[Rfam]
RNA sequence: CAAUGCUGUUUGGUAUCUGACACAUGGCUUUUUAUUUUAGCUAUAUGCGGCAUGAAAUAUGGCAAAUAGCUAGGAGGAACGGAUCUUGUGACAUUGGUUGCUCCUUAAUUAGCCUCCAGUUACUCAUUUAUAGCAGUUUACAUGC
Dot-bracket structure: ...((((((.........(.(.(((((((.........)))))..)).).).......)))))).............(((.(..........(((((..(((........)))..))))).............).))).......
A member of the RNA family "Small nucleolar RNA F1/F2/snoR5a" from Miscanthus lutarioriparius, 145 nucleotides long. The match comes from Rfam's covariance-model search (94 bits). The family has 8 seed sequences and 325 matches in Rfam 15.1. NCBI's taxonomy places the organism under Eukaryota, Embryophyta, Poales, Panicoideae, Miscanthus.